The family of this 92-nucleotide sequence from Ornithorhynchus anatinus is "Small nucleolar SNORD12/SNORD106".

RNA sequence: GCUGGUGUAUGUGAUGACGAAACUUUUUUCCCCAUCAGAUCGACCAUGUUGAUCUCAAUUCCUCUUUGCCAGGUAUUUUCUGAUACACCAGC
Numbered sequence: 001g002c003u004g005g006u007g008u009a010u011g012u013g014a015u016g017a018c019g020a021a022a023c024u025u026u027u028u029u030c031c032c033c034a035u036c037a038g039a040u041c042g043a044c045c046a047u048g049u050u051g052a053u054c055u056c057a058a059u060u061c062c063u064c065u066u067u068g069c070c071a072g073g074u075a076u077u078u079u080c081u082g083a084u085a086c087a088c089c090a091g092c
Stems, first nucleotide, its partner, number of pairs: 001092009

Lineage of the source: Eukaryota > Gnathostomata > Sarcopterygii > Monotremata > Ornithorhynchus.
It is annotated as a C/D-box small nucleolar RNA.
For this family Rfam cites "Identification of 13 novel human modification guide RNAs" (Vitali et al., Nucleic Acids Res, 2003).
The match comes from Rfam's covariance-model search (96 bits).
Rfam 15.1 lists 2,264 matches to the family in 650 species.
The base pairs follow the family's consensus structure, which was predicted with RNAalifold.